[Rfam]
RNA sequence: GGGGGGUUCCUGGCAUCGUGAUUUGUGCUGCGAAGGAAAAUCACAUUGCCAGGGAUUACCACCC
Numbered sequence: 001g002g003g004g005g006g007u008u009c010c011u012g013g014c015a016u017c018g019u020g021a022u023u024u025g026u027g028c029u030g031c032g033a034a035g036g037a038a039a040a041u042c043a044c045a046u047u048g049c050c051a052g053g054g055a056u057u058a059c060c061a062c063c064c
Stems, first nucleotide, its partner, number of pairs: 001063001004060002006056010018044007
Shown here is a 64-nucleotide RNA from Eptatretus burgeri, a member of the family "mir-23 microRNA precursor family". The base pairs follow the family's consensus structure, which was predicted with PFOLD. Rfam links the family to the GO terms RISC complex and gene silencing by miRNA. NCBI's taxonomy places the organism under Eukaryota, Opisthokonta, Bilateria, Chordata, Eptatretus. The literature on the family includes a 2002 paper in Curr Biol by Lagos-Quintana et al., "Identification of tissue-specific microRNAs from mouse".